[Rfam]
A member of the RNA family "Plastid-rps12 3UTR RNA" from Adenia mannii, 104 nucleotides long. Pairs were carried over by alignment from the consensus structure, which was predicted with LocARNA. It is annotated as a cis-regulatory element. Rfam's curators put it in the seed alignment. Rfam describes the family as follows. Plastid rpl20 is a non-coding RNA (ncRNA) recognised in plastids.
RNA sequence: GGUUUGUAUUGGUGAAAAUUCAAUCACCUCAAUUUUCAAAUUUGAAUUUGAAAGAAUUCCCCAUUGGUAUCAAAUGAUUAGCCGUUAAGCAGGGGAAAUCUUAU
Numbered sequence: 001g002g003u004u005u006g007u008a009u010u011g012g013u014g015a016a017a018a019u020u021c022a023a024u025c026a027c028c029u030c031a032a033u034u035u036u037c038a039a040a041u042u043u044g045a046a047u048u049u050g051a052a053a054g055a056a057u058u059c060c061c062c063a064u065u066g067g068u069a070u071c072a073a074a075u076g077a078u079u080a081g082c083c084g085u086u087a088a089g090c091a092g093g094g095g096a097a098a099u100c101u102u103a104u
Base pairs, nucleotide, nucleotide: 009023010022011021012020059094060093061092063085064084066082068080069079